[Rfam]
RNA: sul1 RNA
RNA sequence: AAAGGACCUGGUGCAAUCCCAGGUGGCUCUUCUGGCCGCUCAUCCGCCAGACAACG
Numbered sequence: 001a002a003a004g005g006a007c008c009u010g011g012u013g014c015a016a017u018c019c020c021a022g023g024u025g026g027c028u029c030u031u032c033u034g035g036c037c038g039c040u041c042a043u044c045c046g047c048c049a050g051a052c053a054a055c056g
Stems, first nucleotide, its partner, number of pairs: 006024006031051006